[Rfam]
RNA sequence: CUCUGGAGAGAGCUAAUUUUAGCCACCAAAGAGGCCAGCCUUUAUGGUUAAACUUUCAGGUGAACAGGACAGAG
Numbered sequence: 001c002u003c004u005g006g007a008g009a010g011a012g013c014u015a016a017u018u019u020u021a022g023c024c025a026c027c028a029a030a031g032a033g034g035c036c037a038g039c040c041u042u043u044a045u046g047g048u049u050a051a052a053c054u055u056u057c058a059g060g061u062g063a064a065c066a067g068g069a070c071a072g073a074g
Stems, first nucleotide, its partner, number of pairs: 001074005012023004025061003029056001032055003038048002